[Rfam]
RNA: Small nucleolar RNA SNORD16
Organism: Jacana jacana
RNA sequence: UGCCGUGAUGUCGUAAUUUGCGUCUGACGCUGUGCUGGGGGACAGGUGCCUGCUGUCCGUGCACUGGUACAGGCGGCUGACGAACAGCCAGCGCUGAGCA
Number, nucleotide and partner (000 for none) at each position: 001u100002g099003c098004c000005g000006u000007g000008a000009u000010g000011u000012c000013g000014u000015a000016a000017u000018u000019u000020g000021c082022g081023u080024c079025u000026g000027a000028c000029g000030c072031u071032g070033u069034g068035c000036u000037g000038g000039g064040g000041g057042a056043c055044a054045g053046g000047u000048g000049c000050c000051u000052g000053c045054u044055g043056u042057c041058c000059g000060u000061g000062c000063a000064c039065u000066g000067g000068u034069a033070c032071a031072g030073g000074c000075g000076g000077c000078u000079g024080a023081c022082g021083a000084a000085c000086a000087g000088c000089c000090a000091g000092c000093g000094c000095u000096g000097a000098g003099c002100a001